[Rfam]
RNA sequence: GAGAGUAGGUGCGGCGAUUGCGGAUGUUUUGCAUCUGAGGAAAGUCCGGGCUCUCGAAAGACCAAAACCGCUGGGUAACCCCCAGGACAGGUGACUGUGCGGAAAGUGCCACAGAAACAUACCGCCGAUGGCUGGCAAUUGUCAGUACAGGUAAGGGUGCAAGGGUGUGGUAAGAGCGCACCAGCAGUAUCGAGAGGUACUGGCUCGGUAAACCCCGGUUGAGAGCAAGGUGGAGGGACAAGGGUUGGUCUUUUGCCCGUCCCGUGCCCAGGAACCGCUUGAGGUGGCGGGCAACCGUCAUCCCAGAUAGAUAAUCGCCCUCGAACAGAACCCGGCUUACGGCCUAGUCUCCCCA
Numbered sequence: 001g002a003g004a005g006u007a008g009g010u011g012c013g014g015c016g017a018u019u020g021c022g023g024a025u026g027u028u029u030u031g032c033a034u035c036u037g038a039g040g041a042a043a044g045u046c047c048g049g050g051c052u053c054u055c056g057a058a059a060g061a062c063c064a065a066a067a068c069c070g071c072u073g074g075g076u077a078a079c080c081c082c083c084a085g086g087a088c089a090g091g092u093g094a095c096u097g098u099g100c101g102g103a104a105a106g107u108g109c110c111a112c113a114g115a116a117a118c119a120u121a122c123c124g125c126c127g128a129u130g131g132c133u134g135g136c137a138a139u140u141g142u143c144a145g146u147a148c149a150g151g152u153a154a155g156g157g158u159g160c161a162a163g164g165g166u167g168u169g170g171u172a173a174g175a176g177c178g179c180a181c182c183a184g185c186a187g188u189a190u191c192g193a194g195a196g197g198u199a200c201u202g203g204c205u206c207g208g209u210a211a212a213c214c215c216c217g218g219u220u221g222a223g224a225g226c227a228a229g230g231u232g233g234a235g236g237g238a239c240a241a242g243g244g245u246u247g248g249u250c251u252u253u254u255g256c257c258c259g260u261c262c263c264g265u266g267c268c269c270a271g272g273a274a275c276c277g278c279u280u281g282a283g284g285u286g287g288c289g290g291g292c293a294a295c296c297g298u299c300a301u302c303c304c305a306g307a308u309a310g311a312u313a314a315u316c317g318c319c320c321u322c323g324a325a326c327a328g329a330a331c332c333c334g335g336c337u338u339a340c341g342g343c344c345u346a347g348u349c350u351c352c353c354c355a
Stems, first nucleotide, its partner, number of pairs: 001351004006346005011340001013319007021037007042338003046335005051225004062255001064253001066220005071085005086100001087098004101215002106213002108209003122156002124152003129149002131146006164182006184204001185202007229276002236269002239266002247262002250259001283302008
Annotation:
Rfam assigns this 355-nucleotide RNA from Gloeomargarita lithophora to the family "Bacterial RNase P class A". A search with the family's covariance model found it, with a score of 244 bits. Lineage of the source: Bacteria > Bacillati > Cyanobacteriota > Gloeomargaritaceae > Gloeomargarita lithophora. Rfam describes the family as follows. Ribonuclease P (RNase P) is a ubiquitous endoribonuclease, found in archaea, bacteria and eukarya as well as chloroplasts and mitochondria. Rfam classes the family as a ribozyme.